[Rfam]
RNA sequence: UAGAGAAGUCAAUGAUGGUUAUGCCCAAGAUGUCUGAACCUGUCUGAAGCAUCUUAGUGAUGUGGUCUGUAUGGUUCUGAGACUUCGCUAAGA
Numbered sequence: 001u002a003g004a005g006a007a008g009u010c011a012a013u014g015a016u017g018g019u020u021a022u023g024c025c026c027a028a029g030a031u032g033u034c035u036g037a038a039c040c041u042g043u044c045u046g047a048a049g050c051a052u053c054u055u056a057g058u059g060a061u062g063u064g065g066u067c068u069g070u071a072u073g074g075u076u077c078u079g080a081g082a083c084u085u086c087g088c089u090a091a092g093a
Stems, first nucleotide, its partner, number of pairs: 005086006
Shown here is a 93-nucleotide RNA from Microtus ochrogaster, a member of the family "Small nucleolar RNA SNORD91 family". Rfam links the family to the GO terms nucleolus and RNA processing. The source organism's lineage runs through Eukaryota, Deuterostomia, Rodentia, Myomorpha and Microtus. The family has 24 seed sequences and 977 matches in Rfam 15.1. The literature on the family includes a 2001 paper in EMBO J by Huttenhofer et al., "RNomics: an experimental approach that identifies 201 candidates for novel, small, non-messenger RNAs in mouse". By type it is a C/D-box small nucleolar RNA.